Rfam assigns this 158-nucleotide RNA sequence from Cavia porcellus to the family "FGF-1 internal ribosome entry site (IRES)". It scores 95 bits against the family's covariance model. NCBI's taxonomy places the organism under Eukaryota, Craniata, Tetrapoda, Caviidae, Cavia. Pairs were carried over by alignment from the consensus structure, which is taken from published work. About the family: This family represents the FGF-1 internal ribosome entry site (IRES). The FGF-1 IRES is present in the 5' UTR of the mRNA and allows cap-independent translation. It is thought that FGF-1 IRES activity is strictly controlled and highly tissue specific. Rfam 15.1 lists 127 matches to the family in 125 species.

RNA sequence: GGCGGGGAUAAGGGCAUCUCCUCUUCUUCCUGAAGGACACUCCCUUCGGAUGAUGAAUGGGAACUCCCUUCCUCCUGCAGCAGCUGUCCUGCGGCCUCCUAAUAGUGCCCUGUGAGUACUGCAGCAGCUGUCUGUCCUGAAAGAAAGCGCCCCAGAGC
Numbered sequence: 001g002g003c004g005g006g007g008a009u010a011a012g013g014g015c016a017u018c019u020c021c022u023c024u025u026c027u028u029c030c031u032g033a034a035g036g037a038c039a040c041u042c043c044c045u046u047c048g049g050a051u052g053a054u055g056a057a058u059g060g061g062a063a064c065u066c067c068c069u070u071c072c073u074c075c076u077g078c079a080g081c082a083g084c085u086g087u088c089c090u091g092c093g094g095c096c097u098c099c100u101a102a103u104a105g106u107g108c109c110c111u112g113u114g115a116g117u118a119c120u121g122c123a124g125c126a127g128c129u130g131u132c133u134g135u136c137c138u139g140a141a142a143g144a145a146a147g148c149g150c151c152c153c154a155g156a157g158c
Stems, first nucleotide, its partner, number of pairs: 004153004009144001011045004020036003024033002046140003055071003059068003079133002081130004089124006099114001